[Rfam]
RNA sequence: GCAUCGAUGAGUUAGCAUGGUUGCUAAAGAUGACUUCAAAUCAUUUGGUGUAGGGUCACUGCACAGAGGUUCGAUUCCUCCUUCGGUGC
Numbered sequence: 001g002c003a004u005c006g007a008u009g010a011g012u013u014a015g016c017a018u019g020g021u022u023g024c025u026a027a028a029g030a031u032g033a034c035u036u037c038a039a040a041u042c043a044u045u046u047g048g049u050g051u052a053g054g055g056u057c058a059c060u061g062c063a064c065a066g067a068g069g070u071u072c073g074a075u076u077c078c079u080c081c082u083u084c085g086g087u088g089c
Base pairs, nucleotide, nucleotide: 001089002088003087004086005085006084007083009081012027013026014025015024016023017022028046029045030044031043032042033041048064049063050062051061052060066080067079068078069077
Shown here is an 89-nucleotide RNA sequence from Plasmodium berghei, a member of the family "Selenocysteine transfer RNA". Its Rfam clan is "tRNA clan". The match comes from Rfam's covariance-model search (67 bits). The base pairs follow the family's consensus structure, which is taken from published work.